[Rfam]
RNA sequence: GCUCAAGAGAGGGCGGUCAUCGGUACCUGGCUGGCCGCCCCGGCAACCCCAAACUCGCGUUCGGGUGCCCCAGGGGAAGAGCGGGCUUCGCACCAUUCGGUGCGGGGCAAGGGCGAGAU
Numbered sequence: 001g002c003u004c005a006a007g008a009g010a011g012g013g014c015g016g017u018c019a020u021c022g023g024u025a026c027c028u029g030g031c032u033g034g035c036c037g038c039c040c041c042g043g044c045a046a047c048c049c050c051a052a053a054c055u056c057g058c059g060u061u062c063g064g065g066u067g068c069c070c071c072a073g074g075g076g077a078a079g080a081g082c083g084g085g086c087u088u089c090g091c092a093c094c095a096u097u098c099g100g101u102g103c104g105g106g107g108c109a110a111g112g113g114c115g116a117g118a119u
Stems, first nucleotide, its partner, number of pairs: 001082004009041001012039006022032002042069003047065003051060001085108010